The record is a 62-nucleotide sequence, which matches "RAGATH-18 RNA" in Rfam. The family's RNA type in Rfam is small RNA. Rfam's curators write: Actinobacteria, Firmicutes, Fusobacteria, Thermotogae (1 example). The base pairs follow the family's consensus structure, which is taken from published work.

[Rfam]
RNA sequence: CCUGUGGAGCGUUACACCAAAUGCAAGUAGCUACGGCAAACGCAGACGCUUUGAAACAGGAA
Dot-bracket structure: (((((...(((((........(((.....((....))....))))))))......)))))..